[Rfam]
The record is a 134-nucleotide sequence from Jaculus jaculus, which matches "Small nucleolar RNA SNORA33" in Rfam. Rfam describes the family as follows. ACA33 is a member of the H/ACA class of snoRNA that guide the sites of modification of uridines to pseudouridines. Gene Ontology terms of the family: nucleolus and RNA processing. Rfam classes the family as an H/ACA-box small nucleolar RNA.

RNA sequence: AAGCCAGUCAAUUAGUCUGGUUUUCUGAAUGUGUUUCUGUCACAGAAAUGUAGGUGAAACUGGCAAUAGUGAUGCCAUGUGACAAACCUAAAGGACAGCUGAGGUUGUUAAGGUCCCCGAAAAUGGCUACAAUA
Numbered sequence: 001a002a003g004c005c006a007g008u009c010a011a012u013u014a015g016u017c018u019g020g021u022u023u024u025c026u027g028a029a030u031g032u033g034u035u036u037c038u039g040u041c042a043c044a045g046a047a048a049u050g051u052a053g054g055u056g057a058a059a060c061u062g063g064c065a066a067u068a069g070u071g072a073u074g075c076c077a078u079g080u081g082a083c084a085a086a087c088c089u090a091a092a093g094g095a096c097a098g099c100u101g102a103g104g105u106u107g108u109u110a111a112g113g114u115c116c117c118c119g120a121a122a123a124u125g126g127c128u129a130c131a132a133u134a
Base pairs, nucleotide, nucleotide: 003064004063005062006061007060016046017045018044019043074127075126076125077124086114087113088112089111091109092108094106095105096104